[Rfam]
RNA sequence: CGCCCCCUUUUCACUUUGCCAAUUUGACUUUUUUGUCUUUAUUGGUCAUUCAAGUGGGGCAAAGGAACUAUCCUUUUAAAACUCAAGCAAGCUGAGUGUUUGUCUUGUAACCUGUCAGAGGAAACAAAC
Numbered sequence: 001c002g003c004c005c006c007c008u009u010u011u012c013a014c015u016u017u018g019c020c021a022a023u024u025u026g027a028c029u030u031u032u033u034u035g036u037c038u039u040u041a042u043u044g045g046u047c048a049u050u051c052a053a054g055u056g057g058g059g060c061a062a063a064g065g066a067a068c069u070a071u072c073c074u075u076u077u078a079a080a081a082c083u084c085a086a087g088c089a090a091g092c093u094g095a096g097u098g099u100u101u102g103u104c105u106u107g108u109a110a111c112c113u114g115u116c117a118g119a120g121g122a123a124a125c126a127a128a129c
Stems, first nucleotide, its partner, number of pairs: 034061005042053004071122006084107001085105001087103006
This 129-nucleotide RNA sequence from Oryctolagus cuniculus belongs to the Rfam family "Small nucleolar RNA SNORA27". About the family: ACA27 is a member of the H/ACA class of snoRNA that guide the sites of modification of uridines to pseudouridines. By type it is an H/ACA-box small nucleolar RNA. Pairs were carried over by alignment from the consensus structure. Its Rfam clan is "SNORA27 clan". The organism belongs to Oryctolagus, within Eukaryota. Its family is annotated with RNA processing and nucleolus in the Gene Ontology.